[Rfam]
RNA: Burkholderia RNA 11
RNA sequence: GCAAUCUGCGCAUCGCGCACGAAAGCCUGGUGGUAUUCCGCUCGCUGCUGGGCAUCUCCUGGAUGUGGUUCGUCGGCGCGGUCUUCCUGGGCAACUUCCCGGCCUUUGCCAAAGACGUGCUG
Numbered sequence: 001g002c003a004a005u006c007u008g009c010g011c012a013u014c015g016c017g018c019a020c021g022a023a024a025g026c027c028u029g030g031u032g033g034u035a036u037u038c039c040g041c042u043c044g045c046u047g048c049u050g051g052g053c054a055u056c057u058c059c060u061g062g063a064u065g066u067g068g069u070u071c072g073u074c075g076g077c078g079c080g081g082u083c084u085u086c087c088u089g090g091g092c093a094a095c096u097u098c099c100c101g102g103c104c105u106u107u108g109c110c111a112a113a114g115a116c117g118u119g120c121u122g
Stems, first nucleotide, its partner, number of pairs: 010048003014044002017041002021037002024034001026032001051121005057115002060112001062110001063105001065103001067099002072095001075092001077089002080087002